[Rfam]
RNA: Small nucleolar RNA R72
RNA sequence: AUGCAAAUGACGAAACUGACCAUCGGAAUAGAAGCUCGUUCUUCGUUAAGCUCGAGCAGUGUUUUCUUCCACAUACUUCCAUGACUCUGAUGCAU
Numbered sequence: 001a002u003g004c005a006a007a008u009g010a011c012g013a014a015a016c017u018g019a020c021c022a023u024c025g026g027a028a029u030a031g032a033a034g035c036u037c038g039u040u041c042u043u044c045g046u047u048a049a050g051c052u053c054g055a056g057c058a059g060u061g062u063u064u065u066c067u068u069c070c071a072c073a074u075a076c077u078u079c080c081a082u083g084a085c086u087c088u089g090a091u092g093c094a095u
Stems, first nucleotide, its partner, number of pairs: 001095005034057004
Dot-bracket structure: (((((............................((((................)))).................................)))))